[Rfam]
RNA sequence: AGCUUAUCGAAUCAGUGCUGAGACUUCGUCAGACACCAGCCCAAUAGGGCUGAUCAGACUUCCAAGACAAGUGAAGUU
Dot-bracket structure: .((((..(...((..((..(((..((.(((.....................))).)).))).)).))...)..)))).
Numbered sequence: 001a002g003c004u005u006a007u008c009g010a011a012u013c014a015g016u017g018c019u020g021a022g023a024c025u026u027c028g029u030c031a032g033a034c035a036c037c038a039g040c041c042c043a044a045u046a047g048g049g050c051u052g053a054u055c056a057g058a059c060u061u062c063c064a065a066g067a068c069a070a071g072u073g074a075a076g077u078u
Stems, first nucleotide, its partner, number of pairs: 002077004008071001012067002016064002020061003025057002028054003

mir-3492 microRNA precursor family: a 78-nucleotide sequence from Schistosoma bovis. The family has 2 seed sequences and 21,496 matches in Rfam 15.1. The source organism's lineage runs through Eukaryota, Rhabditophora, Neodermata, Schistosomatoidea and Schistosoma.